[Rfam]
RNA: Lysine riboswitch aptamer
RNA sequence: AAAAACGAUAGAGGUGCAAUUGACAAGAGUAAUGUCUCAGAGUUUGACGAACUAUGAAGAGAUAUGAAAGGGGAGAUUGCCGAAAUAAAAAUCAAGGUCAAAGGAUUUUUGUUGGUAACUCAGAUAAUAUCUGUUUUACUGUCAUUGAGUAUUCAAUGGAGUGCUAUCUAAAGG
Numbered sequence: 001a002a003a004a005a006c007g008a009u010a011g012a013g014g015u016g017c018a019a020u021u022g023a024c025a026a027g028a029g030u031a032a033u034g035u036c037u038c039a040g041a042g043u044u045u046g047a048c049g050a051a052c053u054a055u056g057a058a059g060a061g062a063u064a065u066g067a068a069a070g071g072g073g074a075g076a077u078u079g080c081c082g083a084a085a086u087a088a089a090a091a092u093c094a095a096g097g098u099c100a101a102a103g104g105a106u107u108u109u110u111g112u113u114g115g116u117a118a119c120u121c122a123g124a125u126a127a128u129a130u131c132u133g134u135u136u137u138a139c140u141g142u143c144a145u146u147g148a149g150u151a152u153u154c155a156a157u158g159g160a161g162u163g164c165u166a167u168c169u170a171a172a173g174g
Stems, first nucleotide, its partner, number of pairs: 007168005016080006024072001032065007084113010114140005121133004142159007